RNA sequence: CGUCUUUUCACCGGGAGGGCGACCCCCUAUAUUCCCUCUCGCCGGCGCAAGCCGGAUAUGGCGAUAAACGGCCGAUGUAAUAAACCUUUCGGACCCGGGGGCAGUACCCGGCGCCUCCACCUGAACCGCCCGGCCGGGCGUUUGAGGCGGGGGCGAAGCAGGAUCGACGAGGGCGUAAAGAUCGGACUUUUGCUCGGCAUUGUACCGCCGUUAUCGGGCUGAAAAAGUAGUUGCCAACGACAACUAUGCGGAAGCGCGUCUCGCAGCCUAAGGCUGUGCGAUAGCUUCAAAUCAAGCCCUAGGGGUUCGCACUUCUAGGCGGGGCUCGGAGGCGCCUGGCAACAGAAGCCUCCACU
Numbered sequence: 001c002g003u004c005u006u007u008u009c010a011c012c013g014g015g016a017g018g019g020c021g022a023c024c025c026c027c028u029a030u031a032u033u034c035c036c037u038c039u040c041g042c043c044g045g046c047g048c049a050a051g052c053c054g055g056a057u058a059u060g061g062c063g064a065u066a067a068a069c070g071g072c073c074g075a076u077g078u079a080a081u082a083a084a085c086c087u088u089u090c091g092g093a094c095c096c097g098g099g100g101g102c103a104g105u106a107c108c109c110g111g112c113g114c115c116u117c118c119a120c121c122u123g124a125a126c127c128g129c130c131c132g133g134c135c136g137g138g139c140g141u142u143u144g145a146g147g148c149g150g151g152g153g154c155g156a157a158g159c160a161g162g163a164u165c166g167a168c169g170a171g172g173g174c175g176u177a178a179a180g181a182u183c184g185g186a187c188u189u190u191u192g193c194u195c196g197g198c199a200u201u202g203u204a205c206c207g208c209c210g211u212u213a214u215c216g217g218g219c220u221g222a223a224a225a226a227g228u229a230g231u232u233g234c235c236a237a238c239g240a241c242a243a244c245u246a247u248g249c250g251g252a253a254g255c256g257c258g259u260c261u262c263g264c265a266g267c268c269u270a271a272g273g274c275u276g277u278g279c280g281a282u283a284g285c286u287u288c289a290a291a292u293c294a295a296g297c298c299c300u301a302g303g304g305g306u307u308c309g310c311a312c313u314u315c316u317a318g319g320c321g322g323g324g325c326u327c328g329g330a331g332g333c334g335c336c337u338g339g340c341a342a343c344a345g346a347a348g349c350c351u352c353c354a355c356u
Stems, first nucleotide, its partner, number of pairs: 042055004060194005070187001072185005085173003089170003095111005112155007195210004200221001202219001205217002322337004328353006

Rfam assigns this 356-nucleotide RNA from Aurantimonas sp. Leaf443 to the family "Alphaproteobacteria transfer-messenger RNA". A search with the family's covariance model found it, with a score of 283 bits. The family's consensus secondary structure is taken from published work. A reference for the family is Felden et al. (1997), "Probing the structure of the Escherichia coli 10Sa RNA (tmRNA)", RNA. Bacterial tmRNA, also known as 10Sa RNA or SsrA, is named for its dual tRNA and mRNA-like properties. Its role is to liberate the mRNA from a stalled ribosome. To accomplish this part of the tmRNA is used as a reading frame that ends in a translation stop signal. The broken mRNA is replaced in the ribosome by the tmRNA and translation of the tmRNA leads to addition of a proteolysis tag to the incomplete protein enabling recognition by a protease. Recently a number of permuted tmRNA genes have been found encoded in two parts. tmRNAs have been identified in eubacteria and some chloroplasts but are absent from archaeal and eukaryote nuclear genomes.